Overview
Rfam assigns this 79-nucleotide RNA sequence from Methylobacterium oryzihabitans to the family "Makes More Granules Regulator RNA (mmgR)". The organism belongs to Methylobacterium, within Bacteria. By type it is a small RNA.

RNA sequence: GCAACGCGCCCAUCCGGGCGUUUCCUCCCUAUACUCGAGGCCGUCUCCGGCACACGGAGCGGCCUUCUUUUUUCGCGAC
Numbered sequence: 001g002c003a004a005c006g007c008g009c010c011c012a013u014c015c016g017g018g019c020g021u022u023u024c025c026u027c028c029c030u031a032u033a034c035u036c037g038a039g040g041c042c043g044u045c046u047c048c049g050g051c052a053c054a055c056g057g058a059g060c061g062g063c064c065u066u067c068u069u070u071u072u073u074c075g076c077g078a079c
Base pairs, nucleotide, nucleotide: 008019009018010017011016039064040063041062042061043060044059046058047057048056
It scores 48 bits against the family's covariance model. Pairs were carried over by alignment from the consensus structure. Rfam describes the family as follows. SuhB later renamed mmgR (makes more granules regulator) was a putative non-coding RNA found multiple times in the Agrobacterium tumefaciens genome and related alpha-proteobacteria. Other non-coding RNAs uncovered in the same analysis include: speF, ybhL, metA, and serC.Several studies inSinorhizobium meliloti showed that suhB element is indeed a non-coding RNA:firstly it was detected on Northern blot and called Sm8RNA, secondly in an RNAseq study referred to as SmelC689.The mutant phenotype's (strain lacking the small RNA) cytoplasm contains higher content of polyhydroxybutyrate (PBH)storage granules than wild type strain. The sRNA is required to limit the PBH intracellular accumulation when the nitrogen-fixing Sinorhizobium meliloti is under condition of surplus carbon in relation to nitrogen. It has been renamed to mmgR. Further study confirmed that mmgR fine-tunes the regulation of PBH storage.Northern blot confirmed the expression of the sRNA in other rhizobia species. MmgR homologues were found in most alpha-proteobacteria.